[Rfam]
Nucleotides: 150
Stems, first nucleotide, its partner, number of pairs: 004147007017029003031130002033120002035065004060118002069095005100116005122133003
Number, partner (000 for none) and nucleotide at each position: 001000c002000a003000a004147g005146a006145u007144u008143c009142u010141c011000g012000g013000a014000g015000u016000a017029a018028g019027g020000u021000g022000a023000a024000a025000u026000u027019c028018c029017u030000a031130a032129c033120c034119g035065g036064c037063g038062g039000u040000g041000a042000u043000g044000u045000u046000c047000g048000u049000a050000c051000a052000c053000g054000a055000a056000c057000u058000a059000a060118g061117c062038c063037c064036g065035c066000g067000a068000c069095u070094c071093u072092c073091u074000u075000c076000u077000u078000u079000u080000u081000u082000u083000c084000a085000u086000a087000g088000a089000g090000a091073a092072g093071g094070g095069a096000c097000u098000g099000a100116u101115c102114u103113g104112g105000u106000g107000c108000c109000a110000u111000u112104c113103c114102a115101g116100a117061g118060c119034c120033g121000a122133c123132g124131g125000u126000a127000a128000a129032g130031u131124c132123c133122g134000g135000a136000u137000g138000g139000g140000a141010g142009a143008g144007g145006a146005u147004c148000a149000u150000a
The record is a 150-nucleotide RNA sequence from Paenibacillus wynnii, which matches "FMN riboswitch aptamer (RFN element)" in Rfam. The match comes from Rfam's covariance-model search (111 bits). NCBI's taxonomy places the organism under Bacteria, Bacillati, Bacilli, Caryophanales, Paenibacillus. The RFN element is a highly conserved domain that is found frequently in the 5'-untranslated regions of prokaryotic mRNAs that encode for flavin mononucleotide (FMN) biosynthesis and transport proteins.